[Rfam]
RNA sequence: AUCGUUCAUCUUGUAAGUUUUCUAAGCUUAUUGGACGGAAGUAGACGAAAGUCGAAGGAACGCAUG
Numbered sequence: 001a002u003c004g005u006u007c008a009u010c011u012u013g014u015a016a017g018u019u020u021u022c023u024a025a026g027c028u029u030a031u032u033g034g035a036c037g038g039a040a041g042u043a044g045a046c047g048a049a050a051g052u053c054g055a056a057g058g059a060a061c062g063c064a065u066g
Stems, first nucleotide, its partner, number of pairs: 003062005009035003013031007038063001044053003
A member of the RNA family "Glutamine riboswitch aptamer (glnA leader)", 66 nucleotides long. A reference for the family is Ames and Breaker (2011), "Bacterial aptamers that selectively bind glutamine", RNA Biol. Rfam links the family to the GO term glutamine binding.